[Rfam]
RNA sequence: AUACUUACCUGGCAGGGGAGACACCAGCAUCAGGCAACUGGUUUUCCCAAGGCAGGGUUCAUCCCCUGCAGUCUAGUGUCCUGACCCCUGGAAUUCCCAAAAUGUGGAAAAUUUGACUGCAUAAUUCGUAGUAACAGAGGACUGCUCUAGCAGAGGCCUUGG
Numbered sequence: 001a002u003a004c005u006u007a008c009c010u011g012g013c014a015g016g017g018g019a020g021a022c023a024c025c026a027g028c029a030u031c032a033g034g035c036a037a038c039u040g041g042u043u044u045u046c047c048c049a050a051g052g053c054a055g056g057g058u059u060c061a062u063c064c065c066c067u068g069c070a071g072u073c074u075a076g077u078g079u080c081c082u083g084a085c086c087c088c089u090g091g092a093a094u095u096c097c098c099a100a101a102a103u104g105u106g107g108a109a110a111a112u113u114u115g116a117c118u119g120c121a122u123a124a125u126u127c128g129u130a131g132u133a134a135c136a137g138a139g140g141a142c143u144g145c146u147c148u149a150g151c152a153g154a155g156g157c158c159u160u161g162g
Stems, first nucleotide, its partner, number of pairs: 012120004016048006023042005049089001051087002056082002060078003092114002094111001095109001097107002137160004142156001143154001